[Rfam]
Shown here is a 259-nucleotide sequence from Ophiocordyceps camponoti-leonardi, a member of the family "Group I catalytic intron". Lineage of the source: Eukaryota > Fungi > Sordariomycetes > Hypocreales > Ophiocordyceps. From the family's description: Group I catalytic introns are large self-splicing ribozymes. They catalyse their own excision from mRNA, tRNA and rRNA precursors in a wide range of organisms. The core secondary structure consists of 9 paired regions (P1-P9). These fold to essentially two domains - the P4-P6 domain (formed from the stacking of P5, P4, P6 and P6a helices) and the P3-P9 domain (formed from the P8, P3, P7 and P9 helices).

RNA sequence: AGGUGCUGGUAUAAAAUCCUGUGCCAGAGUAGUAAGUAAUUACUAUAAACAAUAUCACUAUAUGCUGGCAAAUCCUAAGUGGUUCCUCUAGCGGGAAUAAUAUUCCCUAGUGGCACGCUUCGCAGGGUAAUCAGCAGGAAACCAAAAUAAAAUUUUUUUUAUGAGUAGGAUCCUCAGAGACUAUACGUGAUACUCCUAUUUGGUUGUUAUUAAUGCUAAUAGGAUGAAAAUAUAGUCCUAUUUUAUAUGAAAGUAUAAA
Numbered sequence: 001a002g003g004u005g006c007u008g009g010u011a012u013a014a015a016a017u018c019c020u021g022u023g024c025c026a027g028a029g030u031a032g033u034a035a036g037u038a039a040u041u042a043c044u045a046u047a048a049a050c051a052a053u054a055u056c057a058c059u060a061u062a063u064g065c066u067g068g069c070a071a072a073u074c075c076u077a078a079g080u081g082g083u084u085c086c087u088c089u090a091g092c093g094g095g096a097a098u099a100a101u102a103u104u105c106c107c108u109a110g111u112g113g114c115a116c117g118c119u120u121c122g123c124a125g126g127g128u129a130a131u132c133a134g135c136a137g138g139a140a141a142c143c144a145a146a147a148u149a150a151a152a153u154u155u156u157u158u159u160u161a162u163g164a165g166u167a168g169g170a171u172c173c174u175c176a177g178a179g180a181c182u183a184u185a186c187g188u189g190a191u192a193c194u195c196c197u198a199u200u201u202g203g204u205u206g207u208u209a210u211u212a213a214u215g216c217u218a219a220u221a222g223g224a225u226g227a228a229a230a231u232a233u234a235g236u237c238c239u240a241u242u243u244u245a246u247a248u249g250a251a252a253g254u255a256u257a258a259a
Stems, first nucleotide, its partner, number of pairs: 006027008034040001053192006063136006073127004137173002142168001144166001149158002177238001179237005194224007202216001244257005